RNA: Lysine riboswitch aptamer
Organism: Desulfosporosinus metallidurans
RNA sequence: AGGUGCGGUAGAGGCGCGAAUGACAAGAGUACUGUGGAGUAAGUUGCGGAAACUAAUGAGCCCAUGGGAAAGGAGAUUUCGCCGAAGCCCAAAAAUUCGCAGUUUUUGGUGCUGGGCCUGUAGUGAAGAACUGCAGGACUGUCAUACAAUGUUAAGGAAAAACAUUGUAUGGAGAGCUACUCCCAAC
Dot-bracket structure: ......(((((....(((((...........((((((........................))))))..........)))))...(((((((((((.....)))))))).)))((.((((((((.....)))))))).)).(((((((((((.........)))))))))))....)))))......
Numbered sequence: 001a002g003g004u005g006c007g008g009u010a011g012a013g014g015c016g017c018g019a020a021u022g023a024c025a026a027g028a029g030u031a032c033u034g035u036g037g038a039g040u041a042a043g044u045u046g047c048g049g050a051a052a053c054u055a056a057u058g059a060g061c062c063c064a065u066g067g068g069a070a071a072g073g074a075g076a077u078u079u080c081g082c083c084g085a086a087g088c089c090c091a092a093a094a095a096u097u098c099g100c101a102g103u104u105u106u107u108g109g110u111g112c113u114g115g116g117c118c119u120g121u122a123g124u125g126a127a128g129a130a131c132u133g134c135a136g137g138a139c140u141g142u143c144a145u146a147c148a149a150u151g152u153u154a155a156g157g158a159a160a161a162a163c164a165u166u167g168u169a170u171g172g173a174g175a176g177c178u179a180c181u182c183c184c185a186a187c
Stems, first nucleotide, its partner, number of pairs: 007181005016082005032067006086113003089109008114140002117137008142172011